[Rfam]
RNA sequence: UUAUCUGGCGGUUUACAUGGUAGAAGAUAUCAGUAUAAAAAAUAGAUAUCAUCGAUCAUGUAUGCUGUCAGAUUA
Numbered sequence: 001u002u003a004u005c006u007g008g009c010g011g012u013u014u015a016c017a018u019g020g021u022a023g024a025a026g027a028u029a030u031c032a033g034u035a036u037a038a039a040a041a042a043u044a045g046a047u048a049u050c051a052u053c054g055a056u057c058a059u060g061u062a063u064g065c066u067g068u069c070a071g072a073u074u075a
Stems, first nucleotide, its partner, number of pairs: 004072007012064001014062008023053002026050005